[Rfam]
RNA sequence: GAGCUGUGAGGAAACUUGCGCCCUUGUGAUUGGUUGGGUCCAUCACUAAUUAUCUGAUCAUGAAUGAUGGGAUUUAAGCGCUUCUGAGCUC
Numbered sequence: 001g002a003g004c005u006g007u008g009a010g011g012a013a014a015c016u017u018g019c020g021c022c023c024u025u026g027u028g029a030u031u032g033g034u035u036g037g038g039u040c041c042a043u044c045a046c047u048a049a050u051u052a053u054c055u056g057a058u059c060a061u062g063a064a065u066g067a068u069g070g071g072a073u074u075u076a077a078g079c080g081c082u083u084c085u086g087a088g089c090u091c
Base pairs, nucleotide, nucleotide: 001091002090003089004088
Shown here is a 91-nucleotide RNA from Trema andersonii, a member of the family "small nucleolar RNA snoR114". The family's RNA type in Rfam is C/D-box small nucleolar RNA. On this family, see Chen and Wu, Nucleic Acids Res 2009: "Mining small RNA sequencing data: a new approach to identify small nucleolar RNAs in Arabidopsis". Its family is annotated with nucleolus and RNA processing in the Gene Ontology. Lineage of the source: Eukaryota > Viridiplantae > Mesangiospermae > Gunneridae > Trema. The base pairs follow the family's consensus structure, which was predicted with RNAalifold.